[Rfam]
RNA sequence: CCUGUGGAGCGUUAUAUCAAACGAAAGUAGCUGCCUGCUUCGGCAGGGCAAAAUCGGACGCAAUGAAACAGGAA
Numbered sequence: 001c002c003u004g005u006g007g008a009g010c011g012u013u014a015u016a017u018c019a020a021a022c023g024a025a026a027g028u029a030g031c032u033g034c035c036u037g038c039u040u041c042g043g044c045a046g047g048g049c050a051a052a053a054u055c056g057g058a059c060g061c062a063a064u065g066a067a068a069c070a071g072g073a074a
Stems, first nucleotide, its partner, number of pairs: 001072005009061005022056003030049003033044002
A member of the RNA family "RAGATH-18 RNA", 74 nucleotides long. The family's consensus secondary structure is taken from published work. Rfam's curators put it in the seed alignment. Actinobacteria, Firmicutes, Fusobacteria, Thermotogae (1 example).